[Rfam]
RNA sequence: AUCCGUCGCCCACAGGACGUCAAGUUCCCGGGUGGCGGACAGAUCGUUGGUGGAGUAUACGUGUUGCCGCGCAGGGGCCCACGAUUGGGUGUGCGCGCGACGCGUAAAACUUCUGAACGGUCACAGCCUCGCGGAC
Dot-bracket structure: ..(((((((((...((((.....))))..)))))))))...(((((((((.((.((.(...((....((((((...((((......)))).))))))...))....).))))))).))))))..............
Numbered sequence: 001a002u003c004c005g006u007c008g009c010c011c012a013c014a015g016g017a018c019g020u021c022a023a024g025u026u027c028c029c030g031g032g033u034g035g036c037g038g039a040c041a042g043a044u045c046g047u048u049g050g051u052g053g054a055g056u057a058u059a060c061g062u063g064u065u066g067c068c069g070c071g072c073a074g075g076g077g078c079c080c081a082c083g084a085u086u087g088g089g090u091g092u093g094c095g096c097g098c099g100a101c102g103c104g105u106a107a108a109a110c111u112u113c114u115g116a117a118c119g120g121u122c123a124c125a126g127c128c129u130c131g132c133g134g135a136c
Stems, first nucleotide, its partner, number of pairs: 003038009015027004042122006048115003052112002055110002058107001062102002068097006077090004
The record is a 136-nucleotide RNA sequence from Orthohepacivirus hominis, which matches "Hepatitis C alternative reading frame stem-loop" in Rfam. The sequence is in the family's curated seed alignment. It is annotated as a cis-regulatory element. NCBI's taxonomy places the organism under Viruses, Riboviria, Orthornavirae, Amarillovirales, Orthohepacivirus.